A member of the RNA family "Nitrogen stress-induced RNA 1" from Calothrix sp. NIES-4101, 61 nucleotides long. NCBI's taxonomy places the organism under Bacteria, Bacillati, Nostocales, Calotrichaceae, Calothrix. The base pairs follow the family's consensus structure. The literature on the family includes a 2010 paper in J Mol Biol by Ionescu et al., "Heterocyst-specific transcription of NsiR1, a non-coding RNA encoded in a tandem array of direct repeats in cyanobacteria". By type it is a small RNA.
RNA sequence: UGGUAGAUGCACCCUGAUAACCCACUCCCCUUUUGGAAGUUUUCCACAGGGGGAUUUUUUU
Numbered sequence: 001u002g003g004u005a006g007a008u009g010c011a012c013c014c015u016g017a018u019a020a021c022c023c024a025c026u027c028c029c030c031u032u033u034u035g036g037a038a039g040u041u042u043u044c045c046a047c048a049g050g051g052g053g054a055u056u057u058u059u060u061u
Stems, first nucleotide, its partner, number of pairs: 002013003027053006034046004
Dot-bracket structure: .(((......))).............((((((.((((.....)))).))))))........